[Rfam]
The family of this 285-nucleotide RNA from Coleofasciculus chthonoplastes is "HNH endonuclease-associated RNA and ORF (HEARO) RNA".
Nucleotides: 285
Stems, first nucleotide, its partner, number of pairs: 001073007010043002013040002019033004044063008076271003081107008110265010129202002133196008141281001181280007204247004209243004216239002219236005
Number, partner (000 for none) and nucleotide at each position: 001073g002072u003071c004070a005069a006068c007067a008000a009000c010043c011042c012000a013040g014039c015000g016000c017000u018000g019033a020032c021031c022030g023000a024000u025000a026000c027000g028000a029000g030022c031021g032020g033019u034000a035000c036000a037000g038000c039014g040013u041000g042011g043010g044063c045062u046061u047060g048059a049058g050057a051056a052000a053000u054000a055000a056051u057050u058049c059048u060047u061046a062045a063044g064000c065000c066000c067007u068006g069005u070004u071003g072002a073001u074000u075000a076271g077270c078269c079000u080000u081107a082106g083105c084104a085103g086102c087101u088100c089000g090000u091000u092000a093000a094000u095000a096000g097000u098000a099000a100088g101087a102086g103085c104084u105083g106082c107081u108000c109000c110265g111264u112263u113262u114261a115260u116259c117258g118257a119256g120000a121000a122000u123000a124000u125000a126000u127000a128000g129202g130201c131000a132000u133196c134195g135194u136193g137192g138191g139190g140189u141281g142000c143000a144000g145000g146000a147000u148000u149000g150000a151000c152000g153000c154000u155000u156000c157000g158000g159000c160000u161000c162000c163000g164000c165000u166000c167000a168000g169000c170000g171000u172000c173000a174000a175000c176000u177000a178000u179000c180000c181280g182279u183278u184277u185276c186275c187274u188000a189140g190139c191138u192137c193136c194135a195134c196133g197000c198000u199000c200000u201130g202129c203000g204247g205246u206245u207244u208000u209243u210242c211241a212240u213000u214000a215000a216239a217238c218000a219236u220235u221234c222233c223232u224000g225000u226000u227000g228000g229000g230000u231000a232223g233222g234221g235220a236219a237000a238217g239216u240212a241211u242210g243209g244207a245206a246205a247204c248000a249000u250000c251000a252000a253000a254000a255000c256119c257118u258117u259116g260115a261114u262113a263112a264111a265110c266000a267000u268000u269078g270077g271076c272000g273000a274187a275186g276185g277184a278183a279182a280181c281141c282000a283000c284000a285000c
It is annotated as a non-coding RNA gene. Lineage of the source: Bacteria > Cyanobacteriota > Coleofasciculaceae > Coleofasciculus > Coleofasciculus chthonoplastes. For this family Rfam cites "Exceptional structured noncoding RNAs revealed by bacterial metagenome analysis" (Weinberg et al., Nature, 2009).